Shown here is a 120-nucleotide RNA from Comamonas sp. JNW, a member of the family "Glycine riboswitch aptamer".
The source organism's lineage runs through Bacteria, Pseudomonadati, Burkholderiales, Comamonadaceae and Comamonas.
The family has 44 seed sequences and 9,425 matches in Rfam 15.1.
Rfam links the family to the GO term glycine biosynthetic process.
RNA sequence: UCGCGGCAGUCAGGAGAGAGUCGCCCCCGUUGGUUCCCAACGCGCAGCGCGGCCGCCGAAGGCGCAGGCUACUGCAGAUGCAGCUGCUGAACGCUCAGGCAAAAGGACUGGCGCCCGCCG
Numbered sequence: 001u002c003g004c005g006g007c008a009g010u011c012a013g014g015a016g017a018g019a020g021u022c023g024c025c026c027c028c029g030u031u032g033g034u035u036c037c038c039a040a041c042g043c044g045c046a047g048c049g050c051g052g053c054c055g056c057c058g059a060a061g062g063c064g065c066a067g068g069c070u071a072c073u074g075c076a077g078a079u080g081c082a083g084c085u086g087c088u089g090a091a092c093g094c095u096c097a098g099g100c101a102a103a104a105g106g107a108c109u110g111g112c113g114c115c116c117g118c119c120g
Stems, first nucleotide, its partner, number of pairs: 006115001009112005020053004055100003058096002062094003068087002